[Rfam]
A member of the RNA family "mir-312 microRNA precursor family" from Drosophila yakuba, 67 nucleotides long. The source organism's lineage runs through Eukaryota, Ecdysozoa, Altocrustacea, Aparaglossata and Sophophora. The base pairs follow the family's consensus structure, which was predicted with RNAalifold.
RNA sequence: GCUUCGGUUCGUCCCAGGAGCAAUUCUGCACUAUUAAAGCUAGUAUUGCACUUGAGACGGCCGGAUU
Numbered sequence: 001g002c003u004u005c006g007g008u009u010c011g012u013c014c015c016a017g018g019a020g021c022a023a024u025u026c027u028g029c030a031c032u033a034u035u036a037a038a039g040c041u042a043g044u045a046u047u048g049c050a051c052u053u054g055a056g057a058c059g060g061c062c063g064g065a066u067u
Stems, first nucleotide, its partner, number of pairs: 003065006010059004015054004020049005026043003